This 166-nucleotide RNA from Caenorhabditis remanei belongs to the Rfam family "Nematode sRNA ceN72-3_ceN74-2". The family's RNA type in Rfam is small RNA. For this family Rfam cites "Systematic identification of non-coding RNA 2,2,7-trimethylguanosine cap structures in Caenorhabditis elegans" (Jia et al., BMC Mol Biol, 2007).
RNA sequence: CGCAUCGGUCCGGAGUUGAUGGGUUAUCCUUGAUAAACUUUGCCUUCGGGCAACACCCCGGUUUCCUUGUGAAACCAAAACCGUCCAUUCGGACAAAACUCUCAACCAUCUCGCGUUCUCAUUAAGAAUGCAAAACCCUUCCCAUCGACACCAACUUGACCGAUCU
Numbered sequence: 001c002g003c004a005u006c007g008g009u010c011c012g013g014a015g016u017u018g019a020u021g022g023g024u025u026a027u028c029c030u031u032g033a034u035a036a037a038c039u040u041u042g043c044c045u046u047c048g049g050g051c052a053a054c055a056c057c058c059c060g061g062u063u064u065c066c067u068u069g070u071g072a073a074a075c076c077a078a079a080a081c082c083g084u085c086c087a088u089u090c091g092g093a094c095a096a097a098a099c100u101c102u103c104a105a106c107c108a109u110c111u112c113g114c115g116u117u118c119u120c121a122u123u124a125a126g127a128a129u130g131c132a133a134a135a136c137c138c139u140u141c142c143c144a145u146c147g148a149c150a151c152c153a154a155c156u157u158g159a160c161c162g163a164u165c166u
Base pairs, nucleotide, nucleotide: 002166004164006162007161008160009159010158012152013151015149016148017147018146019145020144021143022142023141040053041052042051043050044049062074063073064072065071